[Rfam]
RNA: Archaeal large subunit ribosomal RNA, nucleotides 550 to 647
RNA sequence: GAUAUGGCGUGCAAGGAACUUCUGCGCGAAGGAACCCGUCGCGAGGCGGUAGUACGGGCGACAGUUGCCGAUGUCAUAUCUUACGUUUUGAAGAACGG
Numbered sequence: 001g002a003u004a005u006g007g008c009g010u011g012c013a014a015g016g017a018a019c020u021u022c023u024g025c026g027c028g029a030a031g032g033a034a035c036c037c038g039u040c041g042c043g044a045g046g047c048g049g050u051a052g053u054a055c056g057g058g059c060g061a062c063a064g065u066u067g068c069c070g071a072u073g074u075c076a077u078a079u080c081u082u083a084c085g086u087u088u089u090g091a092a093g094a095a096c097g098g
Base pairs, nucleotide, nucleotide: 001080002079003078004077005076006075007074008073009072010071015069016068022064023063024062025060026059027058031055036049037048038047039046040045084097085096086095